[Rfam]
RNA sequence: CGCUUCACUUGUGGGACGUAACCGCAGGAGUGAGGGGAUAGAUGUACUGUGGGGAAGAUGCUGAGAAACAUCAAGGGGUGGCGAAGAUAGUGCCCUAGCAUCGGAAGACUGUCGGGU
Dot-bracket structure: (.((((((((.............[[[[)))))))).)...(((((.]]]].......[[[[......)))))..[[[[[......((((((]]]]].]]]]......))))))....